[Rfam]
RNA sequence: UCAAAAUAUAGAUAUAUUAUUCGUAUAAUAUGGUGAUAUGGUCCAUAUGUUUCUACGAACUCGCCGUAAAUGAGUUUGCUAUGAAUAGCUACACAUACUUA
Dot-bracket structure: .................((((((((...(((((.........))))).........(((((((.......)))))))..))))))))..............
This 101-nucleotide sequence from Romboutsia hominis belongs to the Rfam family "Purine riboswitch aptamer". The match comes from Rfam's covariance-model search (72 bits).